[Rfam]
RNA: Glycine riboswitch aptamer
Organism: Cycloclasticus sp. symbiont of Poecilosclerida sp. N
RNA sequence: CCAAUUAGCUCUGGAGAGAGGCGCUAUAUAGCGACCACCUAAGAGGAAAGAGGGCUGUAUAAGCGCCGUUAAACUUUCAGGUUUUGGACAGAGGGGCGGCA
Dot-bracket structure: .....(..(((((......(.((........)).).(((.(..(((...((.................))...))))..)))......)))))..).....